[Rfam]
This 161-nucleotide sequence from Tepidamorphus gemmatus belongs to the Rfam family "6S / SsrS RNA". On this family, see Chen et al., Molecular Cell 2017: "6S RNA Mimics B-Form DNA to Regulate Escherichia coli RNA Polymerase". Pairs were carried over by alignment from the consensus structure, which is taken from published work. The source organism's lineage runs through Bacteria, Pseudomonadati, Alphaproteobacteria, Tepidamorphaceae and Tepidamorphus. By type it is a non-coding RNA gene.
RNA sequence: GCGGGGCUGCCCGGCCCGACAGGAGACUCAAAUUCCCCGGGGCCUUAUCGAUCUCGAAGGGAGCUGUCCCUGGUUGAGCCCGUGGGCUCUUUCAUACGGCGCCCACCUACUUGUGUAGGUUCCCGGGAUCGAAGUUCUCCAUCGGCCGCGGCGGCUCCGCC
Numbered sequence: 001g002c003g004g005g006g007c008u009g010c011c012c013g014g015c016c017c018g019a020c021a022g023g024a025g026a027c028u029c030a031a032a033u034u035c036c037c038c039g040g041g042g043c044c045u046u047a048u049c050g051a052u053c054u055c056g057a058a059g060g061g062a063g064c065u066g067u068c069c070c071u072g073g074u075u076g077a078g079c080c081c082g083u084g085g086g087c088u089c090u091u092u093c094a095u096a097c098g099g100c101g102c103c104c105a106c107c108u109a110c111u112u113g114u115g116u117a118g119g120u121u122c123c124c125g126g127g128a129u130c131g132a133a134g135u136u137c138u139c140c141a142u143c144g145g146c147c148g149c150g151g152c153g154g155c156u157c158c159g160c161c
Stems, first nucleotide, its partner, number of pairs: 002159010012148004017144003034128004039123006059104003063100005072093002076089005